Rfam assigns this 143-nucleotide RNA from Leuconostoc fallax to the family "FMN riboswitch aptamer (RFN element)". The family's consensus secondary structure is taken from published work. The organism belongs to Leuconostoc, within Bacteria. It scores 95 bits against the family's covariance model.
RNA sequence: UAUUUACUUCAGGGUCGGGUGUGAUUCCCAACCGGCGGUAAUGCAUGUUUUCCAAUAUGACAAGCUCCGCGACUCACAGUGAUGUGACCGAUUUGGUGAGAUUCCAAGGCCGACAGUUAAAGUCUGGUAUAAAGAAGUUAAAA
Numbered sequence: 001u002a003u004u005u006a007c008u009u010c011a012g013g014g015u016c017g018g019g020u021g022u023g024a025u026u027c028c029c030a031a032c033c034g035g036c037g038g039u040a041a042u043g044c045a046u047g048u049u050u051u052c053c054a055a056u057a058u059g060a061c062a063a064g065c066u067c068c069g070c071g072a073c074u075c076a077c078a079g080u081g082a083u084g085u086g087a088c089c090g091a092u093u094u095g096g097u098g099a100g101a102u103u104c105c106a107a108g109g110c111c112g113a114c115a116g117u118u119a120a121a122g123u124c125u126g127g128u129a130u131a132a133a134g135a136a137g138u139u140a141a142a143a
Stems, first nucleotide, its partner, number of pairs: 003141002006138005017029003031123002033112002035070004074087002092108005114126003